Plastid-psbA-3 3UTR RNA: a 57-nucleotide RNA from Solanum violaceum.
Its Rfam clan is "Plastid-psbA 3UTR RNA clan".
Rfam describes the family as follows. Plastid psbA-3 is a non-coding RNA (ncRNA) present in plastids. It was identified in inverted repeat sequences in the 3 prime untranslate region (3UTR) of photosystem II quinone-binding protein (psbA).
RNA sequence: AAAGGAGCAAUAACAAUUUUCUUGUUUUAUCAAGAUGGUGCUAUUGCUCCUUUCUUU
Numbered sequence: 001a002a003a004g005g006a007g008c009a010a011u012a013a014c015a016a017u018u019u020u021c022u023u024g025u026u027u028u029a030u031c032a033a034g035a036u037g038g039u040g041c042u043a044u045u046g047c048u049c050c051u052u053u054c055u056u057u
Stems, first nucleotide, its partner, number of pairs: 001053012014040001020035005